[Rfam]
RNA sequence: GGUAUUGUUUGCCCCACGUGAGCCCCGGAAACUUUCUUGGUGUCGAACAAACACAGA
Dot-bracket structure: .....((((((..(((.(.(((.........))).).))).......))))))....
The family of this 57-nucleotide sequence from Lentilactobacillus parafarraginis is "Ribosomal protein L13 leader". A search with the family's covariance model found it, with a score of 45 bits. Rfam classes the family as a cis-regulatory leader. The literature on the family includes a 1994 paper in Prog Nucleic Acid Res Mol Biol by Zengel and Lindahl, "Diverse mechanisms for regulating ribosomal protein synthesis in Escherichia coli". Its family is annotated with regulation of gene expression in the Gene Ontology. This family is a putative r-protein leader autoregulatory structure found in B. subtilis and other low-GC Gram-positive bacteria. It is located in the 5' untranslated regions of mRNAs encoding the L13-S9 (rplM-rpsI) ribosomal protein operon.